[Rfam]
RNA sequence: CAUGUUAAUUGUACUUCAUCAGGUGCUCUGGUAUGGUUGAGACCCGGCACCUGUUGGAGCGCAAUUCAUGUG
Number, nucleotide and partner (000 for none) at each position: 001c072002a071003u070004g069005u000006u000007a000008a000009u000010u063011g062012u061013a000014c059015u058016u057017c056018a055019u000020c053021a052022g000023g050024u049025g048026c047027u046028c000029u000030g044031g043032u000033a000034u000035g000036g000037u000038u000039g000040a000041g000042a000043c031044c030045c000046g027047g026048c025049a024050c023051c000052u021053g020054u000055u018056g017057g016058a015059g014060c000061g012062c011063a010064a000065u000066u000067c000068a000069u004070g003071u002072g001
A member of the RNA family "mir-305 microRNA precursor family" from Neodiprion lecontei, 72 nucleotides long. The base pairs follow the family's consensus structure, which was predicted with RNAalifold. Its family is annotated with RISC complex and miRNA-mediated post-transcriptional gene silencing in the Gene Ontology. A search with the family's covariance model found it, with a score of 80 bits. NCBI's taxonomy places the organism under Eukaryota, Protostomia, Altocrustacea, Diprioninae, Neodiprion.